[Rfam]
RNA sequence: AGCUAAAUAGGCGGUGGAGUUCGCCAUAACCGUCUUUAUGACCAAUGACUCCUGCUAGAGA
Numbered sequence: 001a002g003c004u005a006a007a008u009a010g011g012c013g014g015u016g017g018a019g020u021u022c023g024c025c026a027u028a029a030c031c032g033u034c035u036u037u038a039u040g041a042c043c044a045a046u047g048a049c050u051c052c053u054g055c056u057a058g059a060g061a
Stems, first nucleotide, its partner, number of pairs: 010025004016052006032042003

Shown here is a 61-nucleotide sequence from [Anoxybacillus] calidus, a member of the family "Fluoride riboswitch aptamer (crcB RNA motif)". NCBI's taxonomy places the organism under Bacteria, Bacillati, Bacillota, Bacilli, Paranoxybacillus. Rfam 15.1 lists 2,293 matches to the family in 1,982 species.